Annotation:
Shown here is a 302-nucleotide RNA from Mycolicibacterium chitae, a member of the family "Mycobacterium smegmatis small RNA 1".

RNA sequence: ACGGAAGCCCGCUAGGCCAAGAUCGGCUCGGAGGAGAAGGGCCGAAUCUCCCGAAACGGGCGACCCAGCACGGUACCCGGCACCCACGCGGAGCCGAAGCCGCGAUAAUGGCAGAAGUGUUGCGGGCCUGCGAAAUUGCGAAGAGCGGACGGGAUCGUAGCCCUUUGGGUGGGGUCACCACCGAAGCGCAUCGCAAGUAUCGCCGAGGCCAACCCACGCAGCCCACAGUCGCACGCUUGGUAACCGAGUUCCGUGCUAGCGGGCGGCGAUCCGAGCAAUCGGGGCGCCGCCCGCUUCGCCGU
Numbered sequence: 001a002c003g004g005a006a007g008c009c010c011g012c013u014a015g016g017c018c019a020a021g022a023u024c025g026g027c028u029c030g031g032a033g034g035a036g037a038a039g040g041g042c043c044g045a046a047u048c049u050c051c052c053g054a055a056a057c058g059g060g061c062g063a064c065c066c067a068g069c070a071c072g073g074u075a076c077c078c079g080g081c082a083c084c085c086a087c088g089c090g091g092a093g094c095c096g097a098a099g100c101c102g103c104g105a106u107a108a109u110g111g112c113a114g115a116a117g118u119g120u121u122g123c124g125g126g127c128c129u130g131c132g133a134a135a136u137u138g139c140g141a142a143g144a145g146c147g148g149a150c151g152g153g154a155u156c157g158u159a160g161c162c163c164u165u166u167g168g169g170u171g172g173g174g175u176c177a178c179c180a181c182c183g184a185a186g187c188g189c190a191u192c193g194c195a196a197g198u199a200u201c202g203c204c205g206a207g208g209c210c211a212a213c214c215c216a217c218g219c220a221g222c223c224c225a226c227a228g229u230c231g232c233a234c235g236c237u238u239g240g241u242a243a244c245c246g247a248g249u250u251c252c253g254u255g256c257u258a259g260c261g262g263g264c265g266g267c268g269a270u271c272c273g274a275g276c277a278a279u280c281g282g283g284g285c286g287c288c289g290c291c292c293g294c295u296u297c298g299c300c301g302u
Base pairs, nucleotide, nucleotide: 003065004064007061008060009059010058011057015052016051020049021048024044025043026042027041028040029039067257068256069255070254071253072252073251078246079245080244084240085239086238088236089235090234093232094231099112100111101110119222120221121220122219123218124217125210126209127208128207129206130203131202132201133200136196137195138194139193140192141191145189146188147187150183151182152181158177160175161174162173163172164171259294260293261292262291263290264289265288266287267286268285271282272281273280
Dot-bracket structure: ..((..(((((...((...((..((((((.........))))))...)).))....)))))..)).(((((((....(((...(((.(((..((....(((........)))......(((((((((((((((..((((((...(((..(((.....(.(((((......))))).)...)))...))).))))))...))))..)))))......))))))........)).))).)))...)))....))))))).((((((((((..(((......)))..))))))))))........
Taxonomically the source falls in Mycobacterium (subgen. Mycolicibacterium) (Bacteria, Bacillati, Actinomycetota, Mycobacteriaceae). Its family is annotated with RNA polymerase binding in the Gene Ontology. About the family: Mycobacterium smegmatis small RNA 1 is highly expressed during stationary phase of growth. Ms1 RNA directly interacts with RNA polymerase (RNAP), but in a different way than 6S, which is present in other bacteria. Ms1 does not require the presence of the main sigma factor for RNAP interaction. There is evidence that Ms1 RNA may function similar to 6S RNA in M. smegmatis which does not have 6S RNA. The family's consensus secondary structure was predicted with CMfinder.